[Rfam]
Source information:
The family of this 90-nucleotide sequence from Vibrio azureus is "c-di-GMP-I-GGC riboswitch aptamer". Taxonomically the source falls in Vibrio azureus (Bacteria, Pseudomonadati, Gammaproteobacteria, Vibrionaceae).
RNA sequence: CACGCACAGGGCAAACCAUUUGAAAGAAUGGGACGCAAAGCUUCCGGCCUUAACCACCUUUUUAAGUGGAAGGUAGCGGGGUUGCCGAUG
Numbered sequence: 001c002a003c004g005c006a007c008a009g010g011g012c013a014a015a016c017c018a019u020u021u022g023a024a025a026g027a028a029u030g031g032g033a034c035g036c037a038a039a040g041c042u043u044c045c046g047g048c049c050u051u052a053a054c055c056a057c058c059u060u061u062u063u064a065a066g067u068g069g070a071a072g073g074u075a076g077c078g079g080g081g082u083u084g085c086c087g088a089u090g
Base pairs, nucleotide, nucleotide: 001090003087004086011036012035016031017030018029019028020027021026034076039083040082041081042080044079045078046077047074048073049072050071051070